The family of this 116-nucleotide RNA sequence from Phoenix dactylifera is "Small nucleolar RNA Z278". From the family's description: snoZ278 is a C/D box small nucleolar RNA. Its methylation guide targets have not been reported. The organism belongs to Phoenix, within Eukaryota. Rfam links the family to the GO terms RNA processing and nucleolus. Rfam classes the family as a C/D-box small nucleolar RNA. For this family Rfam cites "The high diversity of snoRNAs in plants: identification and comparative study of 120 snoRNA genes from Oryza sativa" (Chen et al., Nucleic Acids Res, 2003). The family has 7 seed sequences and 1,130 matches in Rfam 15.1.
RNA sequence: GCCUGUGAUGAUAUCUCCGAGUUUAUGAGGUGUCGCUAGCUCCAAGUCCCUGUUUCACAGGGAGAACCUACUUGGUGCUGUAACAUUCAAAUGAUAUGAAGGGACUUCUUUGAGGC
Numbered sequence: 001g002c003c004u005g006u007g008a009u010g011a012u013a014u015c016u017c018c019g020a021g022u023u024u025a026u027g028a029g030g031u032g033u034c035g036c037u038a039g040c041u042c043c044a045a046g047u048c049c050c051u052g053u054u055u056c057a058c059a060g061g062g063a064g065a066a067c068c069u070a071c072u073u074g075g076u077g078c079u080g081u082a083a084c085a086u087u088c089a090a091a092u093g094a095u096a097u098g099a100a101g102g103g104a105c106u107u108c109u110u111u112g113a114g115g116c
Stems, first nucleotide, its partner, number of pairs: 001116003048062005